Rfam assigns this 139-nucleotide sequence from Cyclopterus lumpus to the family "Small nucleolar RNA SNORD10".
By type it is a C/D-box small nucleolar RNA.
Rfam links the family to the GO terms nucleolus and RNA processing.
Lineage of the source: Eukaryota > Deuterostomia > Cottales > Cyclopterinae > Cyclopterus.
[Rfam]
RNA sequence: GUCUAAUGAUGAAAACAUGCGUGUCAGCUGACUCUGUAAACCGCUGCUGUGUUGUUGCUCUGGUCAGCGUUUUGCUGGUCCGAGUCCUCGGCACGGCAGGGCUACAGAGACGUGAUCAUACUUCACUACUUCUGAAUUC
Numbered sequence: 001g002u003c004u005a006a007u008g009a010u011g012a013a014a015a016c017a018u019g020c021g022u023g024u025c026a027g028c029u030g031a032c033u034c035u036g037u038a039a040a041c042c043g044c045u046g047c048u049g050u051g052u053u054g055u056u057g058c059u060c061u062g063g064u065c066a067g068c069g070u071u072u073u074g075c076u077g078g079u080c081c082g083a084g085u086c087c088u089c090g091g092c093a094c095g096g097c098a099g100g101g102c103u104a105c106a107g108a109g110a111c112g113u114g115a116u117c118a119u120a121c122u123u124c125a126c127u128a129c130u131u132c133u134g135a136a137u138u139c
Stems, first nucleotide, its partner, number of pairs: 001139001004136001042101001044099007